[Rfam]
RNA sequence: AGAGAAAAACCGACCUUAAAUUGCGCGAACUGCAGCGAUCGCGUAUACUUUUGGCGUUGACGUAAUACAGUGUGCUUGCGGCUUCCACCUGUAACCAUGCUGAUAAAAACCUCGCUCCGGCGGGGUUUUUU
Number, nucleotide and partner (000 for none) at each position: 001a000002g061003a000004g000005a058006a057007a000008a000009a000010c000011c056012g055013a000014c000015c000016u000017u000018a050019a049020a000021u000022u045023g044024c043025g042026c041027g040028a039029a000030c037031u000032g000033c000034a000035g000036c000037g030038a000039u028040c027041g026042c025043g024044u023045a022046u000047a000048c000049u019050u018051u000052u000053g000054g000055c012056g011057u006058u005059g000060a000061c002062g000063u000064a000065a000066u000067a000068c102069a101070g100071u099072g000073u097074g096075c000076u094077u093078g092079c091080g090081g089082c000083u000084u000085c000086c000087a000088c000089c081090u080091g079092u078093a077094a076095c000096c074097a073098u000099g071100c070101u069102g068103a000104u000105a130106a129107a128108a127109a126110c125111c124112u123113c122114g121115c120116u000117c000118c000119g000120g115121c114122g113123g112124g111125g110126u109127u108128u107129u106130u105131u000